This 70-nucleotide RNA sequence from Callithrix jacchus belongs to the Rfam family "Small nucleolar RNA SNORD30". Clan: SNORD30 clan. A reference for the family is Tycowski et al. (1996), "A mammalian gene with introns instead of exons generating stable RNA products", Nature. By type it is a C/D-box small nucleolar RNA. The family has 20 seed sequences and 367 matches in Rfam 15.1. The match comes from Rfam's covariance-model search (85 bits).

RNA sequence: CUCUGUGAUGACUUAAAUAGAAUCUCGUUCGGCUGAUAACUUGCUGUUGAGACUCUAAAAUCUGAUGUUC
Numbered sequence: 001c002u003c004u005g006u007g008a009u010g011a012c013u014u015a016a017a018u019a020g021a022a023u024c025u026c027g028u029u030c031g032g033c034u035g036a037u038a039a040c041u042u043g044c045u046g047u048u049g050a051g052a053c054u055c056u057a058a059a060a061u062c063u064g065a066u067g068u069u070c
Stems, first nucleotide, its partner, number of pairs: 023052005030046004